[Rfam]
RNA sequence: AAACUGACGCUCUCCGAGCUGUAGCGCCUAAAAGGUUUGUACCUGAUGGCGCACGGCCUAUGGGUUCUGCCGGAAACGGCAGCGCCUCCCUUUUGGAAAGGAGAAACCGCAGCGUUGCA
Numbered sequence: 001a002a003a004c005u006g007a008c009g010c011u012c013u014c015c016g017a018g019c020u021g022u023a024g025c026g027c028c029u030a031a032a033a034g035g036u037u038u039g040u041a042c043c044u045g046a047u048g049g050c051g052c053a054c055g056g057c058c059u060a061u062g063g064g065u066u067c068u069g070c071c072g073g074a075a076a077c078g079g080c081a082g083c084g085c086c087u088c089c090c091u092u093u094u095g096g097a098a099a100g101g102a103g104a105a106a107c108c109g110c111a112g113c114g115u116u117g118c119a
Base pairs, nucleotide, nucleotide: 004112006110011104012103013102014101015100018057019056020055021054022053024052025051026050027049028048033044034043035042062087063086064085065084067082068081069080070079071078072077088096089095
Dot-bracket structure: ...(.(....(((((..(((((.(((((....(((......)))...))))))))))....((((.((((((....)))))).))))((.....))...))))).....).).......